[Rfam]
RNA: Ribosomal protein L19 leader
RNA sequence: ACGAUGUUCCGCUGCUAUGAACGAUACACAUAAGCAUGAGCAUCUG
Numbered sequence: 001a002c003g004a005u006g007u008u009c010c011g012c013u014g015c016u017a018u019g020a021a022c023g024a025u026a027c028a029c030a031u032a033a034g035c036a037u038g039a040g041c042a043u044c045u046g
Base pairs, nucleotide, nucleotide: 003044004043005042006041007040008039009038013036014035016032017031018030